c-di-AMP riboswitch aptamer (ydaO/yuaA leader): a 143-nucleotide RNA sequence from Paenibacillus sp. oral taxon 786.
RNA sequence: GAUAAAAGUACGCUUAAUUUUCGAUGGGUAAAGUCGAAAAGCGGGGGAACCAAUCUUUUGGGGCGAAUCGUUGUAGGAUUAACGUAGGGAACCAUCUUUCCCGAGCCCGUCAGCUAACCUCGUUUGCAGUGGAUGGGUCAUUU
Numbered sequence: 001g002a003u004a005a006a007a008g009u010a011c012g013c014u015u016a017a018u019u020u021u022c023g024a025u026g027g028g029u030a031a032a033g034u035c036g037a038a039a040a041g042c043g044g045g046g047g048a049a050c051c052a053a054u055c056u057u058u059u060g061g062g063g064c065g066a067a068u069c070g071u072u073g074u075a076g077g078a079u080u081a082a083c084g085u086a087g088g089g090a091a092c093c094a095u096c097u098u099u100c101c102c103g104a105g106c107c108c109g110u111c112a113g114c115u116a117a118c119c120u121c122g123u124u125u126g127c128a129g130u131g132g133a134u135g136g137g138u139c140a141u142u143u
Stems, first nucleotide, its partner, number of pairs: 012127002018040008041123006051060002061108003069084004087102004
Background:
Taxonomically the source falls in Paenibacillus sp. oral taxon 786 (Bacteria, Bacilli, Caryophanales, Paenibacillaceae). Gene Ontology terms of the family: regulation of gene expression and cyclic-di-AMP binding.